[Rfam]
RNA sequence: GUUCUCAUGAACUCACUCAACCUGGGUGUGAUGCUGGCUCACACUGUGGGCUUUUAAGUGGCCAUCACAACCUUAUUGAGUGAGCGAAUGCGUAC
Numbered sequence: 001g002u003u004c005u006c007a008u009g010a011a012c013u014c015a016c017u018c019a020a021c022c023u024g025g026g027u028g029u030g031a032u033g034c035u036g037g038c039u040c041a042c043a044c045u046g047u048g049g050g051c052u053u054u055u056a057a058g059u060g061g062c063c064a065u066c067a068c069a070a071c072c073u074u075a076u077u078g079a080g081u082g083a084g085c086g087a088a089u090g091c092g093u094a095c
Base pairs, nucleotide, nucleotide: 008087012084013083014082015081016080017079018078019077020076024072025071027069028068029067030066031065032064033063
RNA: mir-67 microRNA precursor family
Organism: Cotesia typhae